[Rfam]
RNA sequence: AAGGUAUAAUAGAUAAUAGCUUGGUUUUUACCAAGAGGAAAGUCCGAGCUGCGGUGAGGCAAGGUUUCAUUUAACAAAUGACUAGAGUAAUCUAAGGGAUAGUGCAACAGAAAGUAAACAGCCACUUUUGUGGUGAUGGUGAAACGGUGGGGUAAGAGCCCACCAGUGCUUUGAGUAAUCUUAGUAGCUAUGUAAACCCAACCUGCAGCAAGAAGAGAAUGGUAAAAGCUUCACAAUUUGGCUCUUCGCAAGAGUAUCUAAGUGAUUAGAUACCUAGAUAAAUUAUUAUCAAAUACAGAACUCGGCUUACAAUUAUACCUUUUAC
Numbered sequence: 001a002a003g004g005u006a007u008a009a010u011a012g013a014u015a016a017u018a019g020c021u022u023g024g025u026u027u028u029u030a031c032c033a034a035g036a037g038g039a040a041a042g043u044c045c046g047a048g049c050u051g052c053g054g055u056g057a058g059g060c061a062a063g064g065u066u067u068c069a070u071u072u073a074a075c076a077a078a079u080g081a082c083u084a085g086a087g088u089a090a091u092c093u094a095a096g097g098g099a100u101a102g103u104g105c106a107a108c109a110g111a112a113a114g115u116a117a118a119c120a121g122c123c124a125c126u127u128u129u130g131u132g133g134u135g136a137u138g139g140u141g142a143a144a145c146g147g148u149g150g151g152g153u154a155a156g157a158g159c160c161c162a163c164c165a166g167u168g169c170u171u172u173g174a175g176u177a178a179u180c181u182u183a184g185u186a187g188c189u190a191u192g193u194a195a196a197c198c199c200a201a202c203c204u205g206c207a208g209c210a211a212g213a214a215g216a217g218a219a220u221g222g223u224a225a226a227a228g229c230u231u232c233a234c235a236a237u238u239u240g241g242c243u244c245u246u247c248g249c250a251a252g253a254g255u256a257u258c259u260a261a262g263u264g265a266u267u268a269g270a271u272a273c274c275u276a277g278a279u280a281a282a283u284u285a286u287u288a289u290c291a292a293a294u295a296c297a298g299a300a301c302u303c304g305g306c307u308u309a310c311a312a313u314u315a316u317a318c319c320u321u322u323u324a325c
Stems, first nucleotide, its partner, number of pairs: 001321010012290007020035006040308003044305005049208004057231004062204005067081005082096001083094004097199002102197002104193003119138002121134005146164006166188001167186004173180002212247004218238003222234002254273008

The family of this 325-nucleotide RNA sequence from Arcobacter sp. FWKO B is "Bacterial RNase P class A".
Ribonuclease P (RNase P) is a ubiquitous endoribonuclease, found in archaea, bacteria and eukarya as well as chloroplasts and mitochondria. Its best characterised activity is the generation of mature 5'-ends of tRNAs by cleaving the 5'-leader elements of precursor-tRNAs. Cellular RNase Ps are ribonucleoproteins. RNA from bacterial RNase Ps retains its catalytic activity in the absence of the protein subunit, i.e. it is a ribozyme. Isolated eukaryotic and archaeal RNase P RNA has not been shown to retain its catalytic function, but is still essential for the catalytic activity of the holoenzyme. Although the archaeal and eukaryotic holoenzyme s have a much greater protein content than the bacterial ones, the RNA cores from all the three lineages are homologous -- helices corresponding to P1, P2, P3, P4, and P10/11 are common to all cellular RNase P RNAs. Yet, there is considerable sequence variation, particularly among the eukaryotic RNAs. Identified in Yersinia as Ysr151/RnpB.
A search with the family's covariance model found it, with a score of 258 bits.